[Rfam]
RNA sequence: UCAGUCGGCUGGACGGCCGCUCCGCGCCAAUGCCGAAAGGCGGCCGGAGAGGAAAGUCCGGGCUCCAGGGACAAACGGUGCCGGAUAACGUCCGGCGGGUGCGAACCCAGGGACAGUGCCACAGAGAACAGACCGCCACGGUCACGUUGCGUAUCGACCGCGGCAAGGGUGAAACGGUGCGGUAAGAGCGCACCGCGCUUCCGGCAACGGCGGCGGCACGGCAAACCCCACCGGGAGCAAAACCGAAUAGGAACGGCGUGGACGCAAGUCCGAUCGGUCCCGAUCAGCCGUUCGGGUAGGUUGCAUGAUGCGCCGGGCAACCGGCGUACCAGAGGAAUGGCCGUCACGUUCGCGGGCUUGCUCGCGGGCCAUACAGAACCCGGCUUACAGGCUGGCUGAUCUA
Numbered sequence: 001u002c003a004g005u006c007g008g009c010u011g012g013a014c015g016g017c018c019g020c021u022c023c024g025c026g027c028c029a030a031u032g033c034c035g036a037a038a039g040g041c042g043g044c045c046g047g048a049g050a051g052g053a054a055a056g057u058c059c060g061g062g063c064u065c066c067a068g069g070g071a072c073a074a075a076c077g078g079u080g081c082c083g084g085a086u087a088a089c090g091u092c093c094g095g096c097g098g099g100u101g102c103g104a105a106c107c108c109a110g111g112g113a114c115a116g117u118g119c120c121a122c123a124g125a126g127a128a129c130a131g132a133c134c135g136c137c138a139c140g141g142u143c144a145c146g147u148u149g150c151g152u153a154u155c156g157a158c159c160g161c162g163g164c165a166a167g168g169g170u171g172a173a174a175c176g177g178u179g180c181g182g183u184a185a186g187a188g189c190g191c192a193c194c195g196c197g198c199u200u201c202c203g204g205c206a207a208c209g210g211c212g213g214c215g216g217c218a219c220g221g222c223a224a225a226c227c228c229c230a231c232c233g234g235g236a237g238c239a240a241a242a243c244c245g246a247a248u249a250g251g252a253a254c255g256g257c258g259u260g261g262a263c264g265c266a267a268g269u270c271c272g273a274u275c276g277g278u279c280c281c282g283a284u285c286a287g288c289c290g291u292u293c294g295g296g297u298a299g300g301u302u303g304c305a306u307g308a309u310g311c312g313c314c315g316g317g318c319a320a321c322c323g324g325c326g327u328a329c330c331a332g333a334g335g336a337a338u339g340g341c342c343g344u345c346a347c348g349u350u351c352g353c354g355g356g357c358u359u360g361c362u363c364g365c366g367g368g369c370c371a372u373a374c375a376g377a378a379c380c381c382g383g384c385u386u387a388c389a390g391g392c393u394g395g396c397u398g399a400u401c402u403a
Stems, first nucleotide, its partner, number of pairs: 001399010011388001012345007020049005027042001054386003058383005063237004073278001076233005081095005096110001097108004111228002116226002118222003133168002135164003139160005176194006195217001196215004201210003241302004251293006272285004309328008